[Rfam]
Record summary:
Shown here is a 132-nucleotide RNA sequence from Endozoicomonas elysicola, a member of the family "t44 RNA".
RNA sequence: UUACUAUUGAAAAUAGAUCUCACAUACACCGACACAUCAUUCUGGGUGCCGGCUUUUCUCAAUGAGCUUCUCUCGAGAGGUCUCUCUUGAAAUAAAGCCUGGUCGAAUGCAUGGGGUGUGUGGAGGCAUAAC
Numbered sequence: 001u002u003a004c005u006a007u008u009g010a011a012a013a014u015a016g017a018u019c020u021c022a023c024a025u026a027c028a029c030c031g032a033c034a035c036a037u038c039a040u041u042c043u044g045g046g047u048g049c050c051g052g053c054u055u056u057u058c059u060c061a062a063u064g065a066g067c068u069u070c071u072c073u074c075g076a077g078a079g080g081u082c083u084c085u086c087u088u089g090a091a092a093u094a095a096a097g098c099c100u101g102g103u104c105g106a107a108u109g110c111a112u113g114g115g116g117u118g119u120g121u122g123g124a125g126g127c128a129u130a131a132c
Stems, first nucleotide, its partner, number of pairs: 023122008035113003038109005048103005
A search with the family's covariance model found it, with a score of 61 bits.